[Rfam]
RNA: ffh sRNA
Nucleotides: 052
Stems, first nucleotide, its partner, number of pairs: 016044007025035004
Number, partner (000 for none) and nucleotide at each position: 001000c002000a003000a004000u005000g006000c007000c008000g009000g010000g011000a012000u013000c014000g015000c016044c017043c018042c019041c020040u021039g022038u023000c024000a025035g026034c027033g028032u029000g030000u031000u032028a033027c034026g035025c036000c037000c038022a039021c040020a041019g042018g043017g044016g045000c046000c047000a048000u049000c050000a051000u052000g